This 216-nucleotide sequence from Pseudomonas sp. HLS-6 belongs to the Rfam family "sucA-II RNA". The match comes from Rfam's covariance-model search (173 bits). The organism belongs to Pseudomonas, within Bacteria.
RNA sequence: CCGAGGUGCGGGCCAUUGCCCGCACCAAGGUGAAACCCGAGCGAAGGCCCAAAAAGCCCUAGCUUUUACCUAUGAAGAUAUGAGACCAGCAGGGGCUUCCGGGCUGGUACCCGGAAAAUCUGUAGGAUCCUCGGUGGCUUGGUUCGGUCGCUGUACUCGGACUUUUCCAGGCUUUCUGUGGCUCUUGCCGAUCUGUCCCCUAACCGAGGGUGACCA
Numbered sequence: 001c002c003g004a005g006g007u008g009c010g011g012g013c014c015a016u017u018g019c020c021c022g023c024a025c026c027a028a029g030g031u032g033a034a035a036c037c038c039g040a041g042c043g044a045a046g047g048c049c050c051a052a053a054a055a056g057c058c059c060u061a062g063c064u065u066u067u068a069c070c071u072a073u074g075a076a077g078a079u080a081u082g083a084g085a086c087c088a089g090c091a092g093g094g095g096c097u098u099c100c101g102g103g104c105u106g107g108u109a110c111c112c113g114g115a116a117a118a119u120c121u122g123u124a125g126g127a128u129c130c131u132c133g134g135u136g137g138c139u140u141g142g143u144u145c146g147g148u149c150g151c152u153g154u155a156c157u158c159g160g161a162c163u164u165u166u167c168c169a170g171g172c173u174u175u176c177u178g179u180g181g182c183u184c185u186u187g188c189c190g191a192u193c194u195g196u197c198c199c200c201u202a203a204c205c206g207a208g209g210g211u212g213a214c215c216a
Base pairs, nucleotide, nucleotide: 001030002029005026006025007024008023009022010021011020012019013018039065040064041063042062047057048056091201092200093199094198095197096195098115099114100113101112102111103110118192119191120190122188123187124186126184127183129181130180133177134176136174137173138171139170140169141168142167146163147162148161149160